The family of this 70-nucleotide RNA from Corynebacterium sp. sy039 is "L31-Corynebacteriaceae ribosomal protein leader". The match comes from Rfam's covariance-model search (60 bits). The family is grouped with related families in Rfam's "Ribosomal Protein L31 Leader clan". The source organism's lineage runs through Bacteria, Actinomycetes, Mycobacteriales, Corynebacteriaceae and Corynebacterium. Rfam classes the family as a cis-regulatory leader. A reference for the family is Eckert and Weinberg (2020), "Discovery of 20 novel ribosomal leader candidates in bacteria and archaea", BMC Microbiol. The family's consensus secondary structure is taken from published work.
RNA sequence: ACUUAGGCACGAUCACCGAUUUUGCUGUUGCUAUUGAGGUGAAGCGACCUAAAGUGUCAAUCCUGAGGGA
Numbered sequence: 001a002c003u004u005a006g007g008c009a010c011g012a013u014c015a016c017c018g019a020u021u022u023u024g025c026u027g028u029u030g031c032u033a034u035u036g037a038g039g040u041g042a043a044g045c046g047a048c049c050u051a052a053a054g055u056g057u058c059a060a061u062c063c064u065g066a067g068g069g070a
Stems, first nucleotide, its partner, number of pairs: 001055003004051004013042005